A member of the RNA family "c-di-AMP riboswitch aptamer (ydaO/yuaA leader)" from Arthrobacter yangruifuii, 160 nucleotides long. The pairing is the family consensus, mapped onto this sequence. A search with the family's covariance model found it, with a score of 61 bits.

[Rfam]
RNA sequence: GAAGUCCGUUCGCAGAAUCGCAUGGCAGAGGCGGGGGAACCAAUUUCGGGUUUCGAAAGAAGCCCUUGGGGUUAAGUUGCAAAAGGCCAAUAGGCCGGGCAACCGGGUGACUCCCAUCCGAAUCCGACAGCUCACCUCGUAGGCAAUUGGGAGAGGCAAA
Numbered sequence: 001g002a003a004g005u006c007c008g009u010u011c012g013c014a015g016a017a018u019c020g021c022a023u024g025g026c027a028g029a030g031g032c033g034g035g036g037g038a039a040c041c042a043a044u045u046u047c048g049g050g051u052u053u054c055g056a057a058a059g060a061a062g063c064c065c066u067u068g069g070g071g072u073u074a075a076g077u078u079g080c081a082a083a084a085g086g087c088c089a090a091u092a093g094g095c096c097g098g099g100c101a102a103c104c105g106g107g108u109g110a111c112u113c114c115c116a117u118c119c120g121a122a123u124c125c126g127a128c129a130g131c132u133c134a135c136c137u138c139g140u141a142g143g144c145a146a147u148u149g150g151g152a153g154a155g156g157c158a159a160a
Stems, first nucleotide, its partner, number of pairs: 005029002031140006041068002069125003077102004105119004